[Rfam]
RNA sequence: GGUAUGUAUUUCAACCCCACGAUAAGCCCCGGAACUUAUUGUGUUGUGAAAUAGAAC
Numbered sequence: 001g002g003u004a005u006g007u008a009u010u011u012c013a014a015c016c017c018c019a020c021g022a023u024a025a026g027c028c029c030c031g032g033a034a035c036u037u038a039u040u041g042u043g044u045u046g047u048g049a050a051a052u053a054g055a056a057c
Stems, first nucleotide, its partner, number of pairs: 007053007018043009